[Rfam]
RNA sequence: GGCGAUAAACUGCGGCGUAUAAUAGGCGCAGCGGACCCGGGGGCAGUACCCGGCGGCUCCACCAGGAGCUGGGUGAGUGUCGGCGGCACGCUUCAUGCGGGCCAAUGAGCAACCCAGUUGCUGAUGGGGCCGAACCAGGAUCGACGUGUGUUGAAAGGCGCUGUUUUCGCCCGGGCUGAGUAACCCGUUAAAGGCUCAGAACCAUAAGUGCCAACGAUAACGAGGCUCUUGCGAUUGCUGCGUAA
Numbered sequence: 001g002g003c004g005a006u007a008a009a010c011u012g013c014g015g016c017g018u019a020u021a022a023u024a025g026g027c028g029c030a031g032c033g034g035a036c037c038c039g040g041g042g043g044c045a046g047u048a049c050c051c052g053g054c055g056g057c058u059c060c061a062c063c064a065g066g067a068g069c070u071g072g073g074u075g076a077g078u079g080u081c082g083g084c085g086g087c088a089c090g091c092u093u094c095a096u097g098c099g100g101g102c103c104a105a106u107g108a109g110c111a112a113c114c115c116a117g118u119u120g121c122u123g124a125u126g127g128g129g130c131c132g133a134a135c136c137a138g139g140a141u142c143g144a145c146g147u148g149u150g151u152u153g154a155a156a157g158g159c160g161c162u163g164u165u166u167u168c169g170c171c172c173g174g175g176c177u178g179a180g181u182a183a184c185c186c187g188u189u190a191a192a193g194g195c196u197c198a199g200a201a202c203c204a205u206a207a208g209u210g211c212c213a214a215c216g217a218u219a220a221c222g223a224g225g226c227u228c229u230u231g232c233g234a235u236u237g238c239u240g241c242g243u244a245a
Stems, first nucleotide, its partner, number of pairs: 001171005015161004027150003031147003037053005054132007172187004

Annotation: The record is a 245-nucleotide sequence from Allosphingosinicella humi, which matches "permuted transfer-messenger RNA" in Rfam. The family's consensus secondary structure is taken from published work. The source organism's lineage runs through Bacteria, Pseudomonadati, Pseudomonadota, Sphingomonadales and Allosphingosinicella. Rfam classes the family as a non-coding RNA gene. On this family, see Williams and Bartel, RNA 1996: "Phylogenetic analysis of tmRNA secondary structure".